[Rfam]
RNA sequence: GAGUCUGGUAUGGAUUUUGAGGGGAUAACCCAUGCCAAAAAAAUUAAAAGGCGUGGGGUCCCCCAAAAUCCAUACUAGACACUCA
Numbered sequence: 001g002a003g004u005c006u007g008g009u010a011u012g013g014a015u016u017u018u019g020a021g022g023g024g025a026u027a028a029c030c031c032a033u034g035c036c037a038a039a040a041a042a043a044u045u046a047a048a049a050g051g052c053g054u055g056g057g058g059u060c061c062c063c064c065a066a067a068a069u070c071c072a073u074a075c076u077a078g079a080c081a082c083u084c085a
Base pairs, nucleotide, nucleotide: 001084002083003082004079005078006077007076008075012071013070014069015068016067017066018065019064021063022062023061024060030056031055032054033053034052035051
Rfam assigns this 85-nucleotide RNA sequence from Aquarana catesbeiana to the family "mir-541 microRNA precursor family". The literature on the family includes a 2005 paper in BMC Bioinformatics by Sewer et al., "Identification of clustered microRNAs using an ab initio prediction method". Its family is annotated with miRNA-mediated post-transcriptional gene silencing, negative regulation of gene expression and RISC complex in the Gene Ontology. The family's consensus secondary structure was predicted with RNAalifold.